[Rfam]
RNA sequence: CGUGUGGUGCCGGCGCAGGUUUUACCUGGCGCGGGAGAGCGACACGGCCUUUACUGAGGU
Numbered sequence: 001c002g003u004g005u006g007g008u009g010c011c012g013g014c015g016c017a018g019g020u021u022u023u024a025c026c027u028g029g030c031g032c033g034g035g036a037g038a039g040c041g042a043c044a045c046g047g048c049c050u051u052u053a054c055u056g057a058g059g060u
Stems, first nucleotide, its partner, number of pairs: 001046005007040002010035002013032003